[Rfam]
RNA sequence: AAACGAAUCCGGCAAAUUCACACACGUGUCAGCACGUUGUCCCAGGGUGCCGGGCUUGCCAGAAACGCAGAUGCGGGGCGGGCGAACGGUUGGGGCAAUCGGACGCGUGGAGGUCUAAC
Dot-bracket structure: ......................((((((((.....(((((((((....((((..................................)))))))))))))..))))))))..........

Description: The family of this 119-nucleotide RNA sequence from Marinobacter persicus is "t44 RNA". Rfam classes the family as a small RNA. About the family: This family consists of a number of bacterial RNA genes of between 135 and 170 bases in length. The t44 gene has been identified in several species of enteric bacteria but homologs have also been identified in Pseudomonas and Coxiella species. The t44 gene is found between the map and rpsB genes in all species in the full alignment apart from Shigella flexneri. The function of this RNA is unknown.